[Rfam]
RNA sequence: GCCGGGCUCAGCAACGCGAGCCUGUAACCUGAGUAGGGGCAAAAGGGUUAUGGAACGGUGGCCUAAUCCGUCUGAUCGGAUUCCGGGGGCUUUCUAUUGGCCCGCCCAUUCCAAGCCGAGAGCUGGGCCAUGUGACUUGAGCGAAGGCUUGGGUUACGUGGCUCCUAAAGUGGAGGGCACAGCGUGAGGCUGGUUCCACAGAGCAGCGACUACCUCCCGCUCCUGGCGGUGGAAGGAUAACGGGCCGGUGCCAUCCGGGAUUCAAUAAGAUCAGCCCGAUUGACCCCAGUUGGACCAUAACUUUU
Numbered sequence: 001g002c003c004g005g006g007c008u009c010a011g012c013a014a015c016g017c018g019a020g021c022c023u024g025u026a027a028c029c030u031g032a033g034u035a036g037g038g039g040c041a042a043a044a045g046g047g048u049u050a051u052g053g054a055a056c057g058g059u060g061g062c063c064u065a066a067u068c069c070g071u072c073u074g075a076u077c078g079g080a081u082u083c084c085g086g087g088g089g090c091u092u093u094c095u096a097u098u099g100g101c102c103c104g105c106c107c108a109u110u111c112c113a114a115g116c117c118g119a120g121a122g123c124u125g126g127g128c129c130a131u132g133u134g135a136c137u138u139g140a141g142c143g144a145a146g147g148c149u150u151g152g153g154u155u156a157c158g159u160g161g162c163u164c165c166u167a168a169a170g171u172g173g174a175g176g177g178c179a180c181a182g183c184g185u186g187a188g189g190c191u192g193g194u195u196c197c198a199c200a201g202a203g204c205a206g207c208g209a210c211u212a213c214c215u216c217c218c219g220c221u222c223c224u225g226g227c228g229g230u231g232g233a234a235g236g237a238u239a240a241c242g243g244g245c246c247g248g249u250g251c252c253a254u255c256c257g258g259g260a261u262u263c264a265a266u267a268a269g270a271u272c273a274g275c276c277c278g279a280u281u282g283a284c285c286c287c288a289g290u291u292g293g294a295c296c297a298u299a300a301c302u303u304u305u
Stems, first nucleotide, its partner, number of pairs: 001040003004023006028037003043305011056292002059288002061284001063282001065280001068278001070276001072274006078263008088252002091250001097248008106236002109234005115227004120222004125164018165170001172217005183208003190201003

The record is a 305-nucleotide RNA sequence from Carya illinoinensis, which matches "Plant signal recognition particle RNA" in Rfam. The base pairs follow the family's consensus structure, which is taken from published work. A search with the family's covariance model found it, with a score of 253 bits. Lineage of the source: Eukaryota > Euphyllophyta > Spermatophyta > Mesangiospermae > Carya.